Rfam assigns this 100-nucleotide sequence from Vibrio furnissii to the family "Purine riboswitch aptamer".
A search with the family's covariance model found it, with a score of 74 bits.
[Rfam]
RNA sequence: CGGAAAUCAACACUGUUGCUUCGUAUAACCCCACUGAUAGGGUGUGGGGGUCUCUACCAGAAUCCGUAAAAUUCUGAUUACGAAGAGUUAAGCGCACGAU
Numbered sequence: 001c002g003g004a005a006a007u008c009a010a011c012a013c014u015g016u017u018g019c020u021u022c023g024u025a026u027a028a029c030c031c032c033a034c035u036g037a038u039a040g041g042g043u044g045u046g047g048g049g050g051u052c053u054c055u056a057c058c059a060g061a062a063u064c065c066g067u068a069a070a071a072u073u074c075u076g077a078u079u080a081c082g083a084a085g086a087g088u089u090a091a092g093c094g095c096a097c098g099a100u
Stems, first nucleotide, its partner, number of pairs: 019085007029049006058076006
Description: Clan: Purine riboswitches.